[Rfam]
Notes: Rfam assigns this 76-nucleotide RNA from Drosophila simulans to the family "Small nucleolar RNA Me28S-Gm3255". A reference for the family is Huang et al. (2005), "Genome-wide analyses of two families of snoRNA genes from Drosophila melanogaster, demonstrating the extensive utilization of introns for coding of snoRNAs", RNA. Rfam 15.1 lists 39 matches to the family in 29 species.
RNA sequence: AUGAUGCUUUUAAAUUUUCUGACAUCUCUAAUGAACCGUUGUGAUUCAAAUUUUUGUAAUAUAAUUAACUGAUCAU
Numbered sequence: 001a002u003g004a005u006g007c008u009u010u011u012a013a014a015u016u017u018u019c020u021g022a023c024a025u026c027u028c029u030a031a032u033g034a035a036c037c038g039u040u041g042u043g044a045u046u047c048a049a050a051u052u053u054u055u056g057u058a059a060u061a062u063a064a065u066u067a068a069c070u071g072a073u074c075a076u
Base pairs, nucleotide, nucleotide: 001076002075003074031042032041033040034039